[Rfam]
RNA sequence: GCAAGACCUCGUUAGGUGAGGCUCCUAUACAAAAACAUGCCACUGCCCAGAAAUAUCGAAAGAUGCCUAUGGGUUGAACAGGAAUUGCCGGACUAAGGCUUUUCAUAACGUGGCUAAGACGAAUCGUCGUCUUUACGUUGUAUAGUGCCAAAACUCGGUUAGGGGCUAAGC
Numbered sequence: 001g002c003a004a005g006a007c008c009u010c011g012u013u014a015g016g017u018g019a020g021g022c023u024c025c026u027a028u029a030c031a032a033a034a035a036c037a038u039g040c041c042a043c044u045g046c047c048c049a050g051a052a053a054u055a056u057c058g059a060a061a062g063a064u065g066c067c068u069a070u071g072g073g074u075u076g077a078a079c080a081g082g083a084a085u086u087g088c089c090g091g092a093c094u095a096a097g098g099c100u101u102u103u104c105a106u107a108a109c110g111u112g113g114c115u116a117a118g119a120c121g122a123a124u125c126g127u128c129g130u131c132u133u134u135a136c137g138u139u140g141u142a143u144a145g146u147g148c149c150a151a152a153a154c155u156c157g158g159u160u161a162g163g164g165g166c167u168a169a170g171c
Stems, first nucleotide, its partner, number of pairs: 005167001007165004011159002013096001015155003020149003025145008039114005045074005054065004082104003087099003116133005
The record is a 171-nucleotide sequence from Paenibacillus lutimineralis, which matches "M-box riboswitch aptamer (ykoK leader)" in Rfam. Rfam's curators write: M-box riboswitch, also know as ykoK leader is described as a metaloregulatory RNA that sense divalent metals and function as a genetic control element of genes related to divalent metal transport in bacteria. It was first reported upstream of the B.subtilis ykoK gene and genes with related functions in other bacteria. The family has 159 seed sequences and 1,095 matches in Rfam 15.1. The match comes from Rfam's covariance-model search (137 bits). Its family is annotated with regulation of gene expression and response to magnesium ion in the Gene Ontology.